[Rfam]
RNA sequence: CUGCAGGGAUGAUCCCAGCGAACUCUCUCUUGCUGAUGGCAUCGUGGGGAAGCUUCCAAGCAGGCUCUGAGCAGC
Numbered sequence: 001c002u003g004c005a006g007g008g009a010u011g012a013u014c015c016c017a018g019c020g021a022a023c024u025c026u027c028u029c030u031u032g033c034u035g036a037u038g039g040c041a042u043c044g045u046g047g048g049g050a051a052g053c054u055u056c057c058a059a060g061c062a063g064g065c066u067c068u069g070a071g072c073a074g075c
Stems, first nucleotide, its partner, number of pairs: 001074004
RNA: Small nucleolar RNA SNORD26
Organism: Bucco capensis